chrB-a RNA: an 82-nucleotide RNA sequence from Afipia sp. GAS231. Rfam classes the family as a cis-regulatory element. A search with the family's covariance model found it, with a score of 74 bits. The family has 163 seed sequences and 347 matches in Rfam 15.1.
RNA sequence: GCCAUGGGGACUUUGCGAUCUCCCCACGAGGCGACAAGCCCAAGCAUCGCGUCCCGUUAUUUCUUACGAGGGCGCAGCUAUG
Dot-bracket structure: ....((((((..........))))))......................((((((...............)))))).......